[Rfam]
RNA sequence: UUUCCAGUCAGGCUCUGGCUAUAGUCCAGGUCUCAGUUGGACCUGGGUAUAACCAAAGCCCAAUUGUAAA
Numbered sequence: 001u002u003u004c005c006a007g008u009c010a011g012g013c014u015c016u017g018g019c020u021a022u023a024g025u026c027c028a029g030g031u032c033u034c035a036g037u038u039g040g041a042c043c044u045g046g047g048u049a050u051a052a053c054c055a056a057a058g059c060c061c062a063a064u065u066g067u068a069a070a
Stems, first nucleotide, its partner, number of pairs: 007064002011060004016055003020051004026040004
Background
This 70-nucleotide RNA from Microtus ochrogaster belongs to the Rfam family "mir-344 microRNA precursor family". For this family Rfam cites "Small RNA expression and strain specificity in the rat" (Linsen et al., BMC Genomics, 2010). Rfam links the family to the GO terms miRNA-mediated post-transcriptional gene silencing and RISC complex. The match comes from Rfam's covariance-model search (59 bits). The base pairs follow the family's consensus structure, which was predicted with RNAalifold. Rfam 15.1 lists 339 matches to the family in 9 species.